The family of this 141-nucleotide RNA sequence from Paenibacillus sp. GP183 is "c-di-AMP riboswitch aptamer (ydaO/yuaA leader)". The organism belongs to Paenibacillus, within Bacteria.
[Rfam]
RNA sequence: CUACAUAAUUUGCCGAGUUCUCGACAAAAAUCGGGAAACGGGGGAACCACUCUGGGUGAAUUGAUCUCGCAAUACAGGGAUCAUAGGGAAACCUUCAACCGAACCCUUCAGCUAACCUCGUAGGCACCGGAAGGAGUUCAA
Numbered sequence: 001c002u003a004c005a006u007a008a009u010u011u012g013c014c015g016a017g018u019u020c021u022c023g024a025c026a027a028a029a030a031u032c033g034g035g036a037a038a039c040g041g042g043g044g045a046a047c048c049a050c051u052c053u054g055g056g057u058g059a060a061u062u063g064a065u066c067u068c069g070c071a072a073u074a075c076a077g078g079g080a081u082c083a084u085a086g087g088g089a090a091a092c093c094u095u096c097a098a099c100c101g102a103a104c105c106c107u108u109c110a111g112c113u114a115a116c117c118u119c120g121u122a123g124g125c126a127c128c129g130g131a132a133g134g135a136g137u138u139c140a141a
Stems, first nucleotide, its partner, number of pairs: 011126004018037007038121006054106003062083007086100002
It scores 74 bits against the family's covariance model.